[Rfam]
RNA sequence: GGGCCAGCUUAGCCUAGCGGUUCCUUCGCAGUUUGAGCAAGUAACUACCACACCUGGUUCAAGUCCCGCGGGCGCUGCCUGGCCUUUUG
Numbered sequence: 001g002g003g004c005c006a007g008c009u010u011a012g013c014c015u016a017g018c019g020g021u022u023c024c025u026u027c028g029c030a031g032u033u034u035g036a037g038c039a040a041g042u043a044a045c046u047a048c049c050a051c052a053c054c055u056g057g058u059u060c061a062a063g064u065c066c067c068g069c070g071g072g073c074g075c076u077g078c079c080u081g082g083c084c085u086u087u088u089g
Base pairs, nucleotide, nucleotide: 002084003083004082005081006080007079012073013072014071015070017069018068019067020066025063026062028060